[Rfam]
RNA sequence: AAAUAUUUGAGCUGAAGAGAGCCGUCUAUUGACAGUUCGGCACUUUUCUGCUUUGCUAUUGUCAUGGAGUCGCUCUCUUCAGAUCAUUUUCA
Dot-bracket structure: .............(((((.(((..((((..(((.((.....................)).))).))))...))).)))))............
RNA: mir-46/mir-47/mir-281 microRNA precursor family